The family of this 94-nucleotide sequence from Acer yangbiense is "small nucleolar RNA snoR114". Pairs were carried over by alignment from the consensus structure, which was predicted with RNAalifold. The match comes from Rfam's covariance-model search (64 bits). Rfam classes the family as a C/D-box small nucleolar RNA.

Nucleotides: 094
Base pairs, nucleotide, nucleotide: 001094002093003092004091
Number, partner (000 for none) and nucleotide at each position: 001094g002093a003092g004091c005000u006000g007000u008000g009000a010000u011000g012000a013000a014000c015000u016000g017000a018000u019000g020000a021000u022000a023000u024000u025000u026000a027000c028000a029000c030000c031000u032000g033000u034000g035000a036000u037000g038000g039000u040000u041000g042000g043000g044000u045000c046000c047000a048000u049000c050000a051000c052000g053000a054000u055000c056000g057000u058000c059000u060000g061000a062000u063000a064000a065000g066000u067000u068000a069000g070000a071000u072000g073000a074000c075000a076000c077000c078000a079000a080000g081000u082000g083000c084000g085000g086000u087000c088000u089000g090000a091004g092003c093002u094001c